RNA sequence: AUUUUUAACUGAAACAAAAGAUGUAUAAGCUUAUGAAUCGGCAUAAGUGUUUCUACCGGGUGACCGUAAUCACUGGACUACAUCGCUAAAUUGGCGACGU
Numbered sequence: 001a002u003u004u005u006u007a008a009c010u011g012a013a014a015c016a017a018a019a020g021a022u023g024u025a026u027a028a029g030c031u032u033a034u035g036a037a038u039c040g041g042c043a044u045a046a047g048u049g050u051u052u053c054u055a056c057c058g059g060g061u062g063a064c065c066g067u068a069a070u071c072a073c074u075g076g077a078c079u080a081c082a083u084c085g086c087u088a089a090a091u092u093g094g095c096g097a098c099g100u
Stems, first nucleotide, its partner, number of pairs: 020084006029048007057076001059074005